[Rfam]
RNA: tRNA
RNA sequence: AGGAGUUUAGCUCAGCUGGUAGAGCACCGGUCUCCAAAACCGGGGGUCGUGGGUUCGAAUCCCCCAACUCCUG
Numbered sequence: 001a002g003g004a005g006u007u008u009a010g011c012u013c014a015g016c017u018g019g020u021a022g023a024g025c026a027c028c029g030g031u032c033u034c035c036a037a038a039a040c041c042g043g044g045g046g047u048c049g050u051g052g053g054u055u056c057g058a059a060u061c062c063c064c065c066a067a068c069u070c071c072u073g
Base pairs, nucleotide, nucleotide: 001072002071003070004069005068006067007066010025011024012023013022027043028042029041030040031039049065051063052062053061